[Rfam]
Shown here is a 293-nucleotide RNA from Thiobacillus denitrificans, a member of the family "Bacterial RNase P class A".
Taxonomically the source falls in Thiobacillus denitrificans (Bacteria, Pseudomonadati, Pseudomonadota, Nitrosomonadales).
The sequence is in the family's curated seed alignment.
On this family, see Brown, Nucleic Acids Res 1999: "The Ribonuclease P Database".
RNA sequence: AAAGCGGACCAGGCAACCGCUGCCAUGCGUACGCGUGGGAGAGGAAAGUCCGGGCUCCACAGAGCAGGAUGCCGGCUAACGGCCGGACGCCGCGAGGCGAGGAACAGGGCCACAGAGACGAGCGUAUUCAGUUACGGUGAAACGCGGUAACCUCCAUCCGGAGCAACACCAAAUAGGCAGACGAUGACGCGGCUCGCCGAGUCUGCGGGUAGGUGGCUUGAGCGGGUCAGCAAUGGCCCGCCUAGAGGAAUGGUUGCCCACGACAGAACCCGGCUUAUCGGCCCGCUUUCCCA
Numbered sequence: 001a002a003a004g005c006g007g008a009c010c011a012g013g014c015a016a017c018c019g020c021u022g023c024c025a026u027g028c029g030u031a032c033g034c035g036u037g038g039g040a041g042a043g044g045a046a047a048g049u050c051c052g053g054g055c056u057c058c059a060c061a062g063a064g065c066a067g068g069a070u071g072c073c074g075g076c077u078a079a080c081g082g083c084c085g086g087a088c089g090c091c092g093c094g095a096g097g098c099g100a101g102g103a104a105c106a107g108g109g110c111c112a113c114a115g116a117g118a119c120g121a122g123c124g125u126a127u128u129c130a131g132u133u134a135c136g137g138u139g140a141a142a143c144g145c146g147g148u149a150a151c152c153u154c155c156a157u158c159c160g161g162a163g164c165a166a167c168a169c170c171a172a173a174u175a176g177g178c179a180g181a182c183g184a185u186g187a188c189g190c191g192g193c194u195c196g197c198c199g200a201g202u203c204u205g206c207g208g209g210u211a212g213g214u215g216g217c218u219u220g221a222g223c224g225g226g227u228c229a230g231c232a233a234u235g236g237c238c239c240g241c242c243u244a245g246a247g248g249a250a251u252g253g254u255u256g257c258c259c260a261c262g263a264c265a266g267a268a269c270c271c272g273g274c275u276u277a278u279c280g281g282c283c284c285g286c287u288u289u290c291c292c293a
Base pairs, nucleotide, nucleotide: 001289002288003287004286005285006284007283009281010280011278012258013257014256015255016254017253018252020041021040023038024037025036026035027034028033046276047275048274050273051272052271053270054269055163056162057161058160062194065191067159068158069157070156071155072086073085074084075083076082088099089098090097091096102154103153107152108151109148110147111146123136124135125134126133167215168214169213170212177206178205179204180203181202182201185199186198188196189195222241223240224239225238226237227236228235229234